[Rfam]
Nucleotides: 089
Base pairs, nucleotide, nucleotide: 011026012025013024014023015022016021037058038057039056040055041054042053043052044051
Number, partner (000 for none) and nucleotide at each position: 001000u002000a003000a004000c005000c006000a007000c008000c009000u010000u011026g012025c013024c014023a015022g016021c017000u018000u019000c020000g021016g022015c023014u024013g025012g026011u027000u028000c029000u030000c031000g032000u033000c034000a035000g036000c037058g038057c039056a040055g041054c042053c043052g044051c045000c046000u047000u048000g049000c050000c051044g052043c053042g054041g055040c056039u057038g058037c059000a060000u061000a062000u063000u064000a065000a066000g067000a068000a069000g070000u071000c072000g073000u074000u075000g076000u077000g078000c079000a080000u081000u082000u083000a084000g085000c086000u087000u088000g089000a
The family of this 89-nucleotide RNA sequence from Vibrio vulnificus is "uxuA RNA". The sequence is in the family's curated seed alignment. Taxonomically the source falls in Vibrio vulnificus (Bacteria, Pseudomonadota, Vibrionales, Vibrio).